[Rfam]
RNA: pan motif
RNA sequence: UGGAUGAUACCUUUACCGGAUCAUACUAACGCUACUUACAAAAAUUUGUUUUUUGCCUUGAUUAAUUCAUUUAACAGGGACGAAAAG
Numbered sequence: 001u002g003g004a005u006g007a008u009a010c011c012u013u014u015a016c017c018g019g020a021u022c023a024u025a026c027u028a029a030c031g032c033u034a035c036u037u038a039c040a041a042a043a044a045u046u047u048g049u050u051u052u053u054u055g056c057c058u059u060g061a062u063u064a065a066u067u068c069a070u071u072u073a074a075c076a077g078g079g080a081c082g083a084a085a086a087g
Stems, first nucleotide, its partner, number of pairs: 001028003004024005010019002053083003056079005062074003